RNA sequence: UGUUCCAAGGAGCGUUGCAGCAUGGCGGCUCGCCAUGCCAGGCUUGGACCAGGUUGUAUUCGCAACGGCGCUCACGUUAC
Numbered sequence: 001u002g003u004u005c006c007a008a009g010g011a012g013c014g015u016u017g018c019a020g021c022a023u024g025g026c027g028g029c030u031c032g033c034c035a036u037g038c039c040a041g042g043c044u045u046g047g048a049c050c051a052g053g054u055u056g057u058a059u060u061c062g063c064a065a066c067g068g069c070g071c072u073c074a075c076g077u078u079a080c
Base pairs, nucleotide, nucleotide: 002050004048005047006046007045008044021037022036023035024034025033026032
A member of the RNA family "SAH (S-adenosyl-L-homocysteine) riboswitch aptamer" from Janthinobacterium sp. 17J80-10, 80 nucleotides long. A search with the family's covariance model found it, with a score of 63 bits.